[Rfam]
MIR7486 microRNA precursor family: an 87-nucleotide sequence from Gossypium aridum. NCBI's taxonomy places the organism under Eukaryota, Magnoliopsida, eudicotyledons, Gunneridae, Gossypium. Gene Ontology terms of the family: RISC complex and miRNA-mediated post-transcriptional gene silencing. The family's consensus secondary structure was predicted with RNAalifold.
RNA sequence: CACAUCAGCGCGAUUUGAUGACGUGGCAGUAAAUCACGUCCUAUAGGGAGCGACUUGUUGCCAUGUCAGCAAAUCGCGCUGACGUGG
Numbered sequence: 001c002a003c004a005u006c007a008g009c010g011c012g013a014u015u016u017g018a019u020g021a022c023g024u025g026g027c028a029g030u031a032a033a034u035c036a037c038g039u040c041c042u043a044u045a046g047g048g049a050g051c052g053a054c055u056u057g058u059u060g061c062c063a064u065g066u067c068a069g070c071a072a073a074u075c076g077c078g079c080u081g082a083c084g085u086g087g
Stems, first nucleotide, its partner, number of pairs: 001086003005082013019068003023064010034053002037050001040047002